[Rfam]
RNA: SAH (S-adenosyl-L-homocysteine) riboswitch aptamer
RNA sequence: UCAUCCGAGGAGCGCUGCGAGGUGCAAUUGCUGCCCCCAGGCUCGGAUCAGCUAGAACGGCGCUCACCUGAC
Numbered sequence: 001u002c003a004u005c006c007g008a009g010g011a012g013c014g015c016u017g018c019g020a021g022g023u024g025c026a027a028u029u030g031c032u033g034c035c036c037c038c039a040g041g042c043u044c045g046g047a048u049c050a051g052c053u054a055g056a057a058c059g060g061c062g063c064u065c066a067c068c069u070g071a072c
Base pairs, nucleotide, nucleotide: 003048004047005046006045007044008043021036022035024034025033026032